The record is a 74-nucleotide sequence from Upupa epops, which matches "Small nucleolar RNA SNORD19" in Rfam.
RNA sequence: GAAAGAUGAAGAUACUCUCUUUGCUUCCUAUUACUAGUGAAGACCUCAGAUCCAACUCUGAUUUCACUCUGGUU
Numbered sequence: 001g002a003a004a005g006a007u008g009a010a011g012a013u014a015c016u017c018u019c020u021u022u023g024c025u026u027c028c029u030a031u032u033a034c035u036a037g038u039g040a041a042g043a044c045c046u047c048a049g050a051u052c053c054a055a056c057u058c059u060g061a062u063u064u065c066a067c068u069c070u071g072g073u074u
Base pairs, nucleotide, nucleotide: 001065002064003063004062

A reference for the family is Huttenhofer et al. (2001), "RNomics: an experimental approach that identifies 201 candidates for novel, small, non-messenger RNAs in mouse", EMBO J.
The source organism's lineage runs through Eukaryota, Eumetazoa, Sauropsida, Neognathae and Upupa.
The match comes from Rfam's covariance-model search (36 bits).
By type it is a C/D-box small nucleolar RNA.